[Rfam]
About this RNA
The family of this 71-nucleotide sequence from Phrynocephalus forsythii is "Small nucleolar RNA SNORD2". Taxonomically the source falls in Phrynocephalus (Eukaryota, Sarcopterygii, Bifurcata, Agaminae). A search with the family's covariance model found it, with a score of 78 bits. By type it is a C/D-box small nucleolar RNA.
RNA sequence: AAGUGAAAUGAUGGCAUACCAUCUUUCGGGACUGAUUUAAAAUGGAGAUAACAUGUAGUUGCUGAUCACUU
Numbered sequence: 001a002a003g004u005g006a007a008a009u010g011a012u013g014g015c016a017u018a019c020c021a022u023c024u025u026u027c028g029g030g031a032c033u034g035a036u037u038u039a040a041a042a043u044g045g046a047g048a049u050a051a052c053a054u055g056u057a058g059u060u061g062c063u064g065a066u067c068a069c070u071u
Base pairs, nucleotide, nucleotide: 001071002070003069004068005067006066